[Rfam]
RNA: mir-320 microRNA precursor family
Organism: Nannospalax galili
RNA sequence: GCUGCCCUCCGCCUUCUCUUCCCGGUUCUUCCCGGAGUCGGGAAAAGCUGGGUUGAGAGGGCGAAAAGGAUGAGGG
Numbered sequence: 001g002c003u004g005c006c007c008u009c010c011g012c013c014u015u016c017u018c019u020u021c022c023c024g025g026u027u028c029u030u031c032c033c034g035g036a037g038u039c040g041g042g043a044a045a046a047g048c049u050g051g052g053u054u055g056a057g058a059g060g061g062c063g064a065a066a067a068g069g070a071u072g073a074g075g076g
Base pairs, nucleotide, nucleotide: 014059015058016057017056018055021052022051023050024049025048029044030043031042032041033040034039